The record is a 66-nucleotide RNA from Allomesorhizobium alhagi, which matches "ybhL leader" in Rfam. About the family: This family is a putative regulatory RNA structure that is found upstream of an uncharacterized membrane protein in alpha-proteobacteria. The base pairs follow the family's consensus structure. NCBI's taxonomy places the organism under Bacteria, Pseudomonadota, Hyphomicrobiales, Allomesorhizobium, Allomesorhizobium alhagi. It scores 56 bits against the family's covariance model.
[Rfam]
RNA sequence: CAGGCAUGCUGGAGUCCCCGCCAGCGGCGCCUGGGUCGUUGAGACCCGACACCGGACGGGGCAAAG
Number, nucleotide and partner (000 for none) at each position: 001c000002a000003g000004g000005c000006a000007u000008g000009c000010u000011g000012g000013a000014g062015u000016c061017c060018c059019c058020g057021c000022c000023a000024g000025c054026g053027g052028c000029g000030c000031c000032u048033g047034g046035g045036u000037c043038g000039u000040u000041g000042a000043g037044a000045c035046c034047c033048g032049a000050c000051a000052c027053c026054g025055g000056a000057c020058g019059g018060g017061g016062c014063a000064a000065a000066g000